[Rfam]
RNA sequence: GGCAGAUGAUGUUUGUUUUCACGAUGGUCUUCAGAUGCCCACGUGGGCACUGCUGAGAAAGCCACUUGGUAAAACUGAUGCCGGAAA
Numbered sequence: 001g002g003c004a005g006a007u008g009a010u011g012u013u014u015g016u017u018u019u020c021a022c023g024a025u026g027g028u029c030u031u032c033a034g035a036u037g038c039c040c041a042c043g044u045g046g047g048c049a050c051u052g053c054u055g056a057g058a059a060a061g062c063c064a065c066u067u068g069g070u071a072a073a074a075c076u077g078a079u080g081c082c083g084g085a086a087a
Stems, first nucleotide, its partner, number of pairs: 001082004
Dot-bracket structure: ((((..........................................................................)))).....
The record is an 87-nucleotide sequence, which matches "Small nucleolar RNA SNORD35" in Rfam.
From the family's description: U35 is a C/D box snoRNA located in intron 6 of ribosomal protein L13A and intron 3 of ribosomal protein S11 in humans and at homologous positions in mouse and chicken ribosomal protein genes. U35 guides the methylation of 2'-O-ribose sites in 28S rRNA.
It is annotated as a C/D-box small nucleolar RNA.
The base pairs follow the family's consensus structure, which was predicted with PFOLD.